[Rfam]
RNA: tpke11
RNA sequence: ACCUGAAUUAACCAGCACGGGCGUAGGAUUUUAUCCACGCCCGUGCACGCAUGUUAAGGGCAGGAUCAAUAAC
Number, nucleotide and partner (000 for none) at each position: 001a000002c000003c000004u000005g000006a000007a000008u000009u000010a000011a000012c000013c000014a000015g046016c045017a044018c043019g042020g041021g040022c039023g038024u000025a000026g036027g035028a034029u000030u000031u000032u000033a000034u028035c027036c026037a000038c023039g022040c021041c020042c019043g018044u017045g016046c015047a000048c000049g000050c000051a000052u000053g000054u000055u000056a000057a000058g000059g000060g000061c000062a000063g000064g000065a000066u000067c000068a000069a000070u000071a000072a000073c000